[Rfam]
RNA sequence: CAGUGGGACACCCUUCCCCAACGAAGGGCGAAUAUCUGGAAGGAUAUCCAAA
Numbered sequence: 001c002a003g004u005g006g007g008a009c010a011c012c013c014u015u016c017c018c019c020a021a022c023g024a025a026g027g028g029c030g031a032a033u034a035u036c037u038g039g040a041a042g043g044a045u046a047u048c049c050a051a052a
Base pairs, nucleotide, nucleotide: 011028012027013026014025015024016023032047033046034045035044036043037042
The family of this 52-nucleotide RNA sequence from Brevirhabdus pacifica is "serC leader".
The pairing is the family consensus, mapped onto this sequence.
It scores 73 bits against the family's covariance model.
About the family: This family is a putative regulatory RNA structure that is found upstream of the serC-serA operon in some alpha-proteobacteria. The final stem of the structure overlaps the ribosome binding site of the serC reading frame.
Gene Ontology term of the family: regulation of gene expression.
By type it is a cis-regulatory leader.